[Rfam]
RNA sequence: UUCUUAUCCAGAGAGGUGGAGGGACCUGGCCCUAUGAGACCUCGGCAACAGGCUAUUACUAGUACUGUGCCAAUUCCAUCAAGCGAAACAUGCUUGAAAGAUGAGAU
Numbered sequence: 001u002u003c004u005u006a007u008c009c010a011g012a013g014a015g016g017u018g019g020a021g022g023g024a025c026c027u028g029g030c031c032c033u034a035u036g037a038g039a040c041c042u043c044g045g046c047a048a049c050a051g052g053c054u055a056u057u058a059c060u061a062g063u064a065c066u067g068u069g070c071c072a073a074u075u076c077c078a079u080c081a082a083g084c085g086a087a088a089c090a091u092g093c094u095u096g097a098a099a100g101a102u103g104a105g106a107u
Stems, first nucleotide, its partner, number of pairs: 002106007013043005021032003027078003044071004049067002052063004075099001080096006
The record is a 107-nucleotide RNA from Pseudoneobacillus rhizosphaerae, which matches "SAM riboswitch aptamer (S box leader)" in Rfam.
Taxonomically the source falls in Pseudoneobacillus (Bacteria, Bacillati, Caryophanales, Bacillaceae).
The match comes from Rfam's covariance-model search (93 bits).
Gene Ontology term of the family: regulation of gene expression.
Pairs were carried over by alignment from the consensus structure, which is taken from published work.